Rfam assigns this 89-nucleotide sequence from Pseudokineococcus lusitanus to the family "SAM riboswitch aptamer (S box leader)". A search with the family's covariance model found it, with a score of 49 bits.

RNA sequence: CCGCCAUCCAGAGCGGCCGAGAGACCUGGCUCGUCGACGCCGCAGCACCGUCCCCGUCGGGGGCGUGCUCCCGCCAGGACCGAUGGAGG
Numbered sequence: 001c002c003g004c005c006a007u008c009c010a011g012a013g014c015g016g017c018c019g020a021g022a023g024a025c026c027u028g029g030c031u032c033g034u035c036g037a038c039g040c041c042g043c044a045g046c047a048c049c050g051u052c053c054c055c056g057u058c059g060g061g062g063g064c065g066u067g068c069u070c071c072c073g074c075c076a077g078g079a080c081c082g083a084u085g086g087a088g089g
Stems, first nucleotide, its partner, number of pairs: 001089002004086005013043005021032003026077004044069004049065002051062004073081001
Annotation
Lineage of the source: Bacteria > Bacillati > Actinomycetes > Kineosporiaceae > Pseudokineococcus.